RNA: Plant small nucleolar RNA R71
Organism: Hevea brasiliensis
RNA sequence: AUUUGAUGAUGGGGAUAGGUUGCACACAAUUGCUUAAAUCGUUCCCAAUACUCAUACAAACUCUCUCUAUUGUACUGCCGGAUGCCACAAAUUUCUUUUCUUAUGUU
Numbered sequence: 001a002u003u004u005g006a007u008g009a010u011g012g013g014g015a016u017a018g019g020u021u022g023c024a025c026a027c028a029a030u031u032g033c034u035u036a037a038a039u040c041g042u043u044c045c046c047a048a049u050a051c052u053c054a055u056a057c058a059a060a061c062u063c064u065c066u067c068u069a070u071u072g073u074a075c076u077g078c079c080g081g082a083u084g085c086c087a088c089a090a091a092u093u094u095c096u097u098u099u100c101u102u103a104u105g106u107u
Base pairs, nucleotide, nucleotide: 001107003105005102006101058073060071